A member of the RNA family "Histone 3' UTR stem-loop" from Polypterus senegalus, 46 nucleotides long. From the family's description: The mRNAs of metazoan histone genes lack a poly-A tail. 3' end processing occurs at a site between a highly conserved stem-loop (modelled by this family) and a purine rich region around 20 nts downstream (the histone downstream element, or HDE). The stem-loop is bound by a 31 kDa stem-loop binding protein (SLBP - also termed the histone hairpin binding protein, or HBP). Together with U7 snRNA binding of the HDE, SLBP binding nucleate s the formation of the processing complex. The histone 3' UTR stem-loop is also involved in nucleocytoplasmic transport of the mRNA, and in stability regulation and translation efficiency in the cytoplasm. The family has 50 seed sequences and 44,596 matches in Rfam 15.1. Rfam classes the family as a cis-regulatory element.

[Rfam]
RNA sequence: CCAACGGCUCUUUUCAGAGCCACCUACCCAUUCAGACUAGAGCCUU
Numbered sequence: 001c002c003a004a005c006g007g008c009u010c011u012u013u014u015c016a017g018a019g020c021c022a023c024c025u026a027c028c029c030a031u032u033c034a035g036a037c038u039a040g041a042g043c044c045u046u
Stems, first nucleotide, its partner, number of pairs: 006021006